A member of the RNA family "Fluoride riboswitch aptamer (crcB RNA motif)" from Sphingomonas sp. IC081, 71 nucleotides long.
[Rfam]
RNA sequence: CGCCGGCAAGGCGAUGGAUUUCCGCCGGGCUUCGGCCGAACCGCCUUCGGGCUGAUGAUUCCUACCUGAUG
Numbered sequence: 001c002g003c004c005g006g007c008a009a010g011g012c013g014a015u016g017g018a019u020u021u022c023c024g025c026c027g028g029g030c031u032u033c034g035g036c037c038g039a040a041c042c043g044c045c046u047u048c049g050g051g052c053u054g055a056u057g058a059u060u061c062c063u064a065c066c067u068g069a070u071g
Base pairs, nucleotide, nucleotide: 010026011025012024013023016062017061018060020058021057043052044051045050
Background: The family's consensus secondary structure is taken from published work.